[Rfam]
RNA sequence: UCCCCCACAGUCCUCCGAUUCCAAUUUUCCGAAAGGAAUGCCUCUGAGCCGCCCUGCGAGACCCGGGCCACCCGCAGUACGUCGCAGCUUCGAUCCCGUAUCGGGUGCCUUCAAGUUUGCCGCGUUUGGGGUUACUGCGGUCAAUUUCUUGUCCCUCGGGGCAAGCCGAUCUCGCGGGGACGAAUUGGUCUCGGAACUUAACCCUAAGCUUCCUC
Numbered sequence: 001u002c003c004c005c006c007a008c009a010g011u012c013c014u015c016c017g018a019u020u021c022c023a024a025u026u027u028u029c030c031g032a033a034a035g036g037a038a039u040g041c042c043u044c045u046g047a048g049c050c051g052c053c054c055u056g057c058g059a060g061a062c063c064c065g066g067g068c069c070a071c072c073c074g075c076a077g078u079a080c081g082u083c084g085c086a087g088c089u090u091c092g093a094u095c096c097c098g099u100a101u102c103g104g105g106u107g108c109c110u111u112c113a114a115g116u117u118u119g120c121c122g123c124g125u126u127u128g129g130g131g132u133u134a135c136u137g138c139g140g141u142c143a144a145u146u147u148c149u150u151g152u153c154c155c156u157c158g159g160g161g162c163a164a165g166c167c168g169a170u171c172u173c174g175c176g177g178g179g180a181c182g183a184a185u186u187g188g189u190c191u192c193g194g195a196a197c198u199u200a201a202c203c204c205u206a207a208g209c210u211u212c213c214u215c
Stems, first nucleotide, its partner, number of pairs: 009198003015194004
Dot-bracket structure: ........(((...((((............................................................................................................................................................................)))).))).................
This 215-nucleotide part of an RNA from Chaetomium sp. MPI-SDFR-AT-0129 belongs to the Rfam family "Ascomycota telomerase RNA". It scores 1072 bits against the family's covariance model. The pairing is the family consensus, mapped onto this sequence. Rfam 15.1 lists 475 matches to the family in 456 species. Its family is annotated with telomerase activity, telomerase catalytic core complex and telomere maintenance via telomerase in the Gene Ontology.